This 74-nucleotide RNA sequence from Alligator sinensis belongs to the Rfam family "Mammalian CPEB3 ribozyme".
The match comes from Rfam's covariance-model search (36 bits).
Pairs were carried over by alignment from the consensus structure, which is taken from published work.
RNA sequence: ACACAAAUUCAAAGCCAUAGCAGAAGUGUUCAUAAUGCAGCAUGUCAAAUUCCAAUGAAUGUACAAAUUCUGCU
Number, nucleotide and partner (000 for none) at each position: 001a000002c000003a000004c000005a000006a000007a000008u000009u000010c000011a000012a000013a000014g041015c040016c000017a000018u000019a074020g073021c072022a071023g070024a069025a068026g038027u037028g036029u000030u000031c000032a000033u000034a000035a000036u028037g027038c026039a000040g015041c014042a000043u000044g000045u000046c000047a062048a000049a060050u059051u058052c057053c000054a000055a000056u000057g052058a051059a050060u049061g000062u047063a000064c000065a000066a000067a000068u025069u024070c023071u022072g021073c020074u019